[Rfam]
RNA: Lysine riboswitch aptamer
RNA sequence: GCGACAUGUAGAGGCGCAUCGCCUAUCAGUAACUCAGUCGAGGUAGACAGCCAAUGACGUUGAGUGAAAGGAUUCGAUGCCGAAGUGCACUGGGCGUCAUCCCAUUGUGCUGGGGUUGUAUUAAACAGGUACAACACUGCCAUAGUAACUCCGCCAGGAAGGCAGACAUUGAAAUUUACUAUGGAGCGCUACUGAAGGA
Numbered sequence: 001g002c003g004a005c006a007u008g009u010a011g012a013g014g015c016g017c018a019u020c021g022c023c024u025a026u027c028a029g030u031a032a033c034u035c036a037g038u039c040g041a042g043g044u045a046g047a048c049a050g051c052c053a054a055u056g057a058c059g060u061u062g063a064g065u066g067a068a069a070g071g072a073u074u075c076g077a078u079g080c081c082g083a084a085g086u087g088c089a090c091u092g093g094g095c096g097u098c099a100u101c102c103c104a105u106u107g108u109g110c111u112g113g114g115g116u117u118g119u120a121u122u123a124a125a126c127a128g129g130u131a132c133a134a135c136a137c138u139g140c141c142a143u144a145g146u147a148a149c150u151c152c153g154c155c156a157g158g159a160a161g162g163c164a165g166a167c168a169u170u171g172a173a174a175u176u177u178a179c180u181a182u183g184g185a186g187c188g189c190u191a192c193u194g195a196a197g198g199a
Stems, first nucleotide, its partner, number of pairs: 008192004016080006024072001032065007084111006091104004112138002115135008140184009